[Rfam]
RNA sequence: UCUUCCGAAGUUUCUCUCAGGAUAGCUGGAGUUUUGUUAGUUUUAUCAGGUAAAGCGAAUGAUUAGAGGCAUCGGGGGCGCGUCGCCUCGACCUAUUCUCAAACUUUAAUGGGUAAGACCAGUGGUUACUUCAUUGAACUGCUGGGAUUAAUAUGAACCCAAGUGGGCCAUUUUUGGUAAGCAGAACUGGCGAUGAGGGAUGCUCCUAACGCUUGGUUAAGGUGCCAAAAUGCUCGCUCAUCAGAUACCAUAAAAGGUGUUGGUUCAUUUUGACAGCAGGACGGUGGUCAUGGAAGUCGAAAUCCGCUAAGGAGUGUGUAACAACUCACCUGCCGAAUGAACCAGCCCUGAAAAUGGAUGGCGCUGAAGCGGGCUACCGAUACCAGGCCAUUGCUACUACUUAUCACUCGACCUUUUGUAGCAAUGAGUAGGAAGACGUGGGGAUUGUGACGAAGCGUUCGGCGUAAGCCUGCGUGGAACAGUCUCUAGUGCAGAU
Numbered sequence: 001u002c003u004u005c006c007g008a009a010g011u012u013u014c015u016c017u018c019a020g021g022a023u024a025g026c027u028g029g030a031g032u033u034u035u036g037u038u039a040g041u042u043u044u045a046u047c048a049g050g051u052a053a054a055g056c057g058a059a060u061g062a063u064u065a066g067a068g069g070c071a072u073c074g075g076g077g078g079c080g081c082g083u084c085g086c087c088u089c090g091a092c093c094u095a096u097u098c099u100c101a102a103a104c105u106u107u108a109a110u111g112g113g114u115a116a117g118a119c120c121a122g123u124g125g126u127u128a129c130u131u132c133a134u135u136g137a138a139c140u141g142c143u144g145g146g147a148u149u150a151a152u153a154u155g156a157a158c159c160c161a162a163g164u165g166g167g168c169c170a171u172u173u174u175u176g177g178u179a180a181g182c183a184g185a186a187c188u189g190g191c192g193a194u195g196a197g198g199g200a201u202g203c204u205c206c207u208a209a210c211g212c213u214u215g216g217u218u219a220a221g222g223u224g225c226c227a228a229a230a231u232g233c234u235c236g237c238u239c240a241u242c243a244g245a246u247a248c249c250a251u252a253a254a255a256g257g258u259g260u261u262g263g264u265u266c267a268u269u270u271u272g273a274c275a276g277c278a279g280g281a282c283g284g285u286g287g288u289c290a291u292g293g294a295a296g297u298c299g300a301a302a303u304c305c306g307c308u309a310a311g312g313a314g315u316g317u318g319u320a321a322c323a324a325c326u327c328a329c330c331u332g333c334c335g336a337a338u339g340a341a342c343c344a345g346c347c348c349u350g351a352a353a354a355u356g357g358a359u360g361g362c363g364c365u366g367a368a369g370c371g372g373g374c375u376a377c378c379g380a381u382a383c384c385a386g387g388c389c390a391u392u393g394c395u396a397c398u399a400c401u402u403a404u405c406a407c408u409c410g411a412c413c414u415u416u417u418g419u420a421g422c423a424a425u426g427a428g429u430a431g432g433a434a435g436a437c438g439u440g441g442g443g444a445u446u447g448u449g450a451c452g453a454a455g456c457g458u459u460c461g462g463c464g465u466a467a468g469c470c471u472g473c474g475u476g477g478a479a480c481a482g483u484c485u486c487u488a489g490u491g492c493a494g495a496u
Stems, first nucleotide, its partner, number of pairs: 001436006011024001013022003027161003031158003041118007053106003060101003065096001067094003072091006079085001119145009167191004172186005196207003211388005217382001221378003230375001232374001235371003255349003259346010276333005282306003288300002307311001312327001316325002389426009437491001439488010455475002461470003
Shown here is a 496-nucleotide part of an RNA from Neospora caninum, a member of the family "Eukaryotic large subunit ribosomal RNA".
A reference for the family is Yusupov et al. (2001), "Crystal structure of the ribosome at 5.5 A resolution", Science.